[Rfam]
RNA sequence: AAUGGCAGAUGAAGAUGUAUAAAUCUUAUCCUACACACUGAAUCUCUGUGUUGAUUGAUUACUCCGCUUAUUAUCUGAUGUCAUU
Numbered sequence: 001a002a003u004g005g006c007a008g009a010u011g012a013a014g015a016u017g018u019a020u021a022a023a024u025c026u027u028a029u030c031c032u033a034c035a036c037a038c039u040g041a042a043u044c045u046c047u048g049u050g051u052u053g054a055u056u057g058a059u060u061a062c063u064c065c066g067c068u069u070a071u072u073a074u075c076u077g078a079u080g081u082c083a084u085u
Stems, first nucleotide, its partner, number of pairs: 003083005
Record summary: Rfam assigns this 85-nucleotide RNA sequence from Salvia splendens to the family "Small nucleolar RNA R16". The family has 18 seed sequences and 884 matches in Rfam 15.1. A search with the family's covariance model found it, with a score of 73 bits. Rfam links the family to the GO terms RNA processing and nucleolus.